[Rfam]
RNA sequence: GCGGACUGCUAUGAGGAUUCACAGCUCCCUCUACUGAUGACUAGUGAGGACACUGCUUGGCAUGAAUCGAACCUAAUACCAUAGCCGACUCUGAGCAG
Number, nucleotide and partner (000 for none) at each position: 001g000002c000003g000004g000005a000006c098007u097008g096009c095010u000011a000012u000013g000014a000015g000016g000017a000018u000019u000020c000021a000022c000023a000024g000025c000026u000027c000028c000029c000030u000031c000032u000033a000034c000035u000036g000037a000038u000039g000040a000041c000042u000043a000044g000045u000046g000047a000048g000049g000050a000051c000052a000053c000054u000055g000056c000057u000058u000059g000060g000061c000062a000063u000064g000065a000066a000067u000068c000069g000070a000071a000072c000073c000074u000075a000076a000077u000078a000079c000080c000081a000082u000083a000084g000085c000086c000087g000088a000089c000090u000091c000092u000093g000094a000095g009096c008097a007098g006